[Rfam]
RNA sequence: GGUCACGAGAACCAGCGACAAGCCCCGGCUAGCUGGUCGGCAACCCUCCUCCGCGGUGGGGUGCUCCGGGUGACGACCUGGCCGUGUUUCCACACCGGACACGGCAAGCGCGGAUU
Numbered sequence: 001g002g003u004c005a006c007g008a009g010a011a012c013c014a015g016c017g018a019c020a021a022g023c024c025c026c027g028g029c030u031a032g033c034u035g036g037u038c039g040g041c042a043a044c045c046c047u048c049c050u051c052c053g054c055g056g057u058g059g060g061g062u063g064c065u066c067c068g069g070g071u072g073a074c075g076a077c078c079u080g081g082c083c084g085u086g087u088u089u090c091c092a093c094a095c096c097g098g099a100c101a102c103g104g105c106a107a108g109c110g111c112g113g114a115u116u
Stems, first nucleotide, its partner, number of pairs: 001078004009038001011037006021030002039065003044061003048056002081105009
RNA: SAM (S-adenosyl methionine) riboswitch aptamer
Organism: Rhodococcus ruber